Overview: Plastid-psbN 5UTR RNA: a 61-nucleotide RNA sequence from Protea cynaroides. The base pairs follow the family's consensus structure, which was predicted with LocARNA. The match comes from Rfam's covariance-model search (51 bits). The literature on the family includes a 2023 paper in Plant Commun by Richter et al., "Retrograde signaling in plants: A critical review focusing on the GUN pathway and beyond". Rfam describes the family as follows. Plastid psbN is a non-coding RNA (ncRNA) recognised in plastids.

RNA sequence: UGCGACACACAUCAAAGGGGUAGUUCCCCACCCAGGAGCUACUUUGUACAAAUGGUACUUC
Numbered sequence: 001u002g003c004g005a006c007a008c009a010c011a012u013c014a015a016a017g018g019g020g021u022a023g024u025u026c027c028c029c030a031c032c033c034a035g036g037a038g039c040u041a042c043u044u045u046g047u048a049c050a051a052a053u054g055g056u057a058c059u060u061c
Base pairs, nucleotide, nucleotide: 017045018044019043020042021041022040023039024038025037026036027035